[Rfam]
RNA sequence: GGUCAAUGAUGUAAUGUAAAAGGUCUGAUGCCCAGUUCCACUCCCUGCUAUCCAUCGGCUCCCAACAGCCCCUGCUCUACUCCCAGCAUGCUCUAGUUGUGCAUCGUUGGACACAGGGGCUGCUGACAGAGAGGAUGACCUCACAUCCUGUGUCUCUAAGAGACCAUGGCGUCACUGUGUUGCUGGACAUCCAACAGAACCAAUCACAAAGGGGUAUCAAGCUGUGGUACGGGGCUGGGCCGCUGAUCUCAACUUUCAAACUGAGACC
Numbered sequence: 001g002g003u004c005a006a007u008g009a010u011g012u013a014a015u016g017u018a019a020a021a022g023g024u025c026u027g028a029u030g031c032c033c034a035g036u037u038c039c040a041c042u043c044c045c046u047g048c049u050a051u052c053c054a055u056c057g058g059c060u061c062c063c064a065a066c067a068g069c070c071c072c073u074g075c076u077c078u079a080c081u082c083c084c085a086g087c088a089u090g091c092u093c094u095a096g097u098u099g100u101g102c103a104u105c106g107u108u109g110g111a112c113a114c115a116g117g118g119g120c121u122g123c124u125g126a127c128a129g130a131g132a133g134g135a136u137g138a139c140c141u142c143a144c145a146u147c148c149u150g151u152g153u154c155u156c157u158a159a160g161a162g163a164c165c166a167u168g169g170c171g172u173c174a175c176u177g178u179g180u181u182g183c184u185g186g187a188c189a190u191c192c193a194a195c196a197g198a199a200c201c202a203a204u205c206a207c208a209a210a211g212g213g214g215u216a217u218c219a220a221g222c223u224g225u226g227g228u229a230c231g232g233g234g235c236u237g238g239g240c241c242g243c244u245g246a247u248c249u250c251a252a253c254u255u256u257c258a259a260a261c262u263g264a265g266a267c268c
Stems, first nucleotide, its partner, number of pairs: 001268004034249002037246002041227001043226001045224001047222002059214004063125002066122004083110005091101001133192005139186001150175003154171001156169003
Small Cajal body specific RNA 6: a 268-nucleotide RNA sequence from Coregonus sp. 'balchen'. By type it is a small Cajal body RNA. A reference for the family is Darzacq et al. (2002), "Cajal body-specific small nuclear RNAs: a novel class of 2'-O-methylation and pseudouridylation guide RNAs", EMBO J. Rfam 15.1 lists 1,309 matches to the family in 627 species. Its family is annotated with RNA processing and nucleolus in the Gene Ontology. A search with the family's covariance model found it, with a score of 117 bits.